[Rfam]
RNA: Saccharopolyspora sRNA 350
Organism: Streptomyces actuosus
RNA sequence: CGGGCGGUGUACUCCCAGAUGGCGUCCCCGCUCAUCAGCGCCGCGUCGCCGAAGUAGGCGCCGUCGGCGAGCACGCCGAGCACCUGGUCGUCGCCGUAGGGGCCGGUGCCGACCUUCUCGACGCGGCCGUGCGCCAGCAGGUAGACCUCGUCGGUGCGGCUGCCGAAGGAGGCGAUGACCUCGCCCGCGGCGACCUCACGCUGGGUGCAGCGCCGGGCGAGUUCGGCCAGCACGUCCUCGUCCUCGUACCCCCUGAACGCGGGCAGUUCGCCCAGUUCGGCGGGGAUGACCUCGACGCGGUCGCCGGUCUUCACGAACGUGAUGCGGCCGUCGCCGACGGCGUACGUCAGGCGUCGGUUGACGCGGUAUGUGCCGCCCUGCACGUCCACCCACGGAAGCAUCCGCAGCAGCCAGCGCGAGCUGAUCUCCUGCAUCUGCGGAACGGACUUGGUGGUGGUGGCCAGGUUCCGCGCGGCCGCGGUGCCGAGGCUCUGCUGCGGCCUGCCCU
Numbered sequence: 001c002g003g004g005c006g007g008u009g010u011a012c013u014c015c016c017a018g019a020u021g022g023c024g025u026c027c028c029c030g031c032u033c034a035u036c037a038g039c040g041c042c043g044c045g046u047c048g049c050c051g052a053a054g055u056a057g058g059c060g061c062c063g064u065c066g067g068c069g070a071g072c073a074c075g076c077c078g079a080g081c082a083c084c085u086g087g088u089c090g091u092c093g094c095c096g097u098a099g100g101g102g103c104c105g106g107u108g109c110c111g112a113c114c115u116u117c118u119c120g121a122c123g124c125g126g127c128c129g130u131g132c133g134c135c136a137g138c139a140g141g142u143a144g145a146c147c148u149c150g151u152c153g154g155u156g157c158g159g160c161u162g163c164c165g166a167a168g169g170a171g172g173c174g175a176u177g178a179c180c181u182c183g184c185c186c187g188c189g190g191c192g193a194c195c196u197c198a199c200g201c202u203g204g205g206u207g208c209a210g211c212g213c214c215g216g217g218c219g220a221g222u223u224c225g226g227c228c229a230g231c232a233c234g235u236c237c238u239c240g241u242c243c244u245c246g247u248a249c250c251c252c253c254u255g256a257a258c259g260c261g262g263g264c265a266g267u268u269c270g271c272c273c274a275g276u277u278c279g280g281c282g283g284g285g286a287u288g289a290c291c292u293c294g295a296c297g298c299g300g301u302c303g304c305c306g307g308u309c310u311u312c313a314c315g316a317a318c319g320u321g322a323u324g325c326g327g328c329c330g331u332c333g334c335c336g337a338c339g340g341c342g343u344a345c346g347u348c349a350g351g352c353g354u355c356g357g358u359u360g361a362c363g364c365g366g367u368a369u370g371u372g373c374c375g376c377c378c379u380g381c382a383c384g385u386c387c388a389c390c391c392a393c394g395g396a397a398g399c400a401u402c403c404g405c406a407g408c409a410g411c412c413a414g415c416g417c418g419a420g421c422u423g424a425u426c427u428c429c430u431g432c433a434u435c436u437g438c439g440g441a442a443c444g445g446a447c448u449u450g451g452u453g454g455u456g457g458u459g460g461c462c463a464g465g466u467u468c469c470g471c472g473c474g475g476c477c478g479c480g481g482u483g484c485c486g487a488g489g490c491u492c493u494g495c496u497g498c499g500g501c502c503u504g505c506c507c508u
Base pairs, nucleotide, nucleotide: 006390007389008388009387011385012384016380018328021325025322026321029319030318032316033315035313037311038310040308041307042306045305047303048302050300054233055232060227061226062225063224065111066110067109068108075103077102082097083096086095087094088093117221118220119219120218122216126213127212130209134204135203136202137201141197143196144195149192150191155189156188157187158186159185161183163177234296235295236294240290241289242288244286245285249283250282252280253279256277257276258275259271260270261269329342330341331340332339351379353377355375356374357373361371362370363369391431392430394428395427397425399423400422403418404417405416407415437476438475440473443470444469445468446467447465448464449463450462451461452460480506481505482504484500485499486498487496488495